[Rfam]
RNA: Y RNA
Organism: Callithrix jacchus
RNA sequence: GGCUGGUCUGAGUGCAGCGGUAUUUACAUCUAACUGAUCACAACCAGUUACAGAUUUCUUUGUUCUUUCCCCACUCCCACUGCUUAAAACUUGAGUAGCCUAAA
Numbered sequence: 001g002g003c004u005g006g007u008c009u010g011a012g013u014g015c016a017g018c019g020g021u022a023u024u025u026a027c028a029u030c031u032a033a034c035u036g037a038u039c040a041c042a043a044c045c046a047g048u049u050a051c052a053g054a055u056u057u058c059u060u061u062g063u064u065c066u067u068u069c070c071c072c073a074c075u076c077c078c079a080c081u082g083c084u085u086a087a088a089a090c091u092u093g094a095g096u097a098g099c100c101u102a103a104a
Base pairs, nucleotide, nucleotide: 001100002099003098004097005096007094008093010092011091016081017080019078020077032064033063034062036060037059